[Rfam]
Small nucleolar RNA SNORD113/SNORD114 family: a 75-nucleotide RNA sequence from Castor canadensis. The literature on the family includes a 2002 paper in Hum Mol Genet by Cavaille et al., "Identification of tandemly-repeated C/D snoRNA genes at the imprinted human 14q32 domain reminiscent of those at the Prader-Willi/Angelman syndrome region". A search with the family's covariance model found it, with a score of 83 bits. Rfam describes the family as follows. The imprinted human domain at 14q32 contains two clusters of tandemly repeated small nucleolar RNAs named 14q(I) and 14q(II) snoRNAs. These two clusters are named SNORD113 and SNORD114 respectively in the HGNC approved gene symbol nomenclature. The snoRNAs found in both clusters are clearly related and are represented here by a single family. These snoRNAs are intron encoded and are processed from the tissue-specific non-coding human MEG8 RNA, which lies downstream of the imprinted genes DLK1 and GTL2. snoRNAs 14q(I) and 14q(II) differ from previously identified C/D box snoRNAs in their expression profiles and lack of complementarity to rRNA and snRNA. Homologues of these snoRNAs are found in the imprinted non-coding mouse transcript Rian, and in the rat non-coding Bsr (brain-specific repetitive) RNA. Taxonomically the source falls in Castor (Eukaryota, Opisthokonta, Craniata, Gnathostomata). Rfam classes the family as a C/D-box small nucleolar RNA.
RNA sequence: GGGACCAAUGAUGACAAAUGAUGGCGUGUGAGUCAUAUAUGAUGAGCACCAUGUGUCUGAAACUCUGAGGUCCAA
Numbered sequence: 001g002g003g004a005c006c007a008a009u010g011a012u013g014a015c016a017a018a019u020g021a022u023g024g025c026g027u028g029u030g031a032g033u034c035a036u037a038u039a040u041g042a043u044g045a046g047c048a049c050c051a052u053g054u055g056u057c058u059g060a061a062a063c064u065c066u067g068a069g070g071u072c073c074a075a
Stems, first nucleotide, its partner, number of pairs: 002073005